[Rfam]
RNA: Bacterial small signal recognition particle RNA
RNA sequence: CGGGGGGUUGGCGAGGGACGUAUCACUCGCCAACCGGGUCAGGUCCGGAAGGAAGCAGCCCUAACGAGACCGAGCGGGUCUUCGUCCAGCCUCCCACCC
Numbered sequence: 001c002g003g004g005g006g007g008u009u010g011g012c013g014a015g016g017g018a019c020g021u022a023u024c025a026c027u028c029g030c031c032a033a034c035c036g037g038g039u040c041a042g043g044u045c046c047g048g049a050a051g052g053a054a055g056c057a058g059c060c061c062u063a064a065c066g067a068g069a070c071c072g073a074g075c076g077g078g079u080c081u082u083c084g085u086c087c088a089g090c091c092u093c094c095c096a097c098c099c
Base pairs, nucleotide, nucleotide: 004093005092006091007090008089010086011085012084013083014082015081019076020075021074023072026068027067028066029065036061037060038059039058044053045052046051